[Rfam]
RNA sequence: CCAUCAUCACCAUCACCCUGAUUAGUCUUUUGGGCAAUGUGUGCUGGAAGACGAUCUACGACUCUUCCGGUGGCUGAAAUGCAAAUAAAGAGAACCCUCGGAAGAUUAUCUUCCGAGGGUUUUUUUAU
Numbered sequence: 001c002c003a004u005c006a007u008c009a010c011c012a013u014c015a016c017c018c019u020g021a022u023u024a025g026u027c028u029u030u031u032g033g034g035c036a037a038u039g040u041g042u043g044c045u046g047g048a049a050g051a052c053g054a055u056c057u058a059c060g061a062c063u064c065u066u067c068c069g070g071u072g073g074c075u076g077a078a079a080u081g082c083a084a085a086u087a088a089a090g091a092g093a094a095c096c097c098u099c100g101g102a103a104g105a106u107u108a109u110c111u112u113c114c115g116a117g118g119g120u121u122u123u124u125u126u127a128u
Stems, first nucleotide, its partner, number of pairs: 008043003011039003017034005044070008089125016

Rfam assigns this 128-nucleotide RNA sequence from Providencia heimbachae to the family "Histidine operon leader". The base pairs follow the family's consensus structure, which is taken from published work. It is annotated as a cis-regulatory leader. Rfam links the family to the GO term histidine biosynthetic process. The match comes from Rfam's covariance-model search (106 bits). The organism belongs to Providencia heimbachae, within Bacteria.